RNA sequence: AAAACAAUUAUAGCGCCAGAGCUGAAGAAAUUGGACGGAAAUGUAUCUUCAGCAGACGAGGUGGAGGUUAUCGAACUUUCGGCGGAUGCCUCCCGACCGUAUUUGCCCGGUUGUUAUUCUUUUUCAUAAACCAUAUGAGUGAUUGUAUGACAGAGGGGAAAAGAAGGCAUUCUU
Numbered sequence: 001a002a003a004a005c006a007a008u009u010a011u012a013g014c015g016c017c018a019g020a021g022c023u024g025a026a027g028a029a030a031u032u033g034g035a036c037g038g039a040a041a042u043g044u045a046u047c048u049u050c051a052g053c054a055g056a057c058g059a060g061g062u063g064g065a066g067g068u069u070a071u072c073g074a075a076c077u078u079u080c081g082g083c084g085g086a087u088g089c090c091u092c093c094c095g096a097c098c099g100u101a102u103u104u105g106c107c108c109g110g111u112u113g114u115u116a117u118u119c120u121u122u123u124u125c126a127u128a129a130a131c132c133a134u135a136u137g138a139g140u141g142a143u144u145g146u147a148u149g150a151c152a153g154a155g156g157g158g159a160a161a162a163g164a165a166g167g168c169a170u171u172c173u174u
Base pairs, nucleotide, nucleotide: 021053022052023051024050025049026048027047063093064092065091066090067089071082072081073080074079094113095112096111097110098109099108118164119163120162121161122160123159124158132149133148134147135146136145137144138143
RNA: glmS glucosamine-6-phosphate activated ribozyme aptamer
Organism: Psychrobacillus glaciei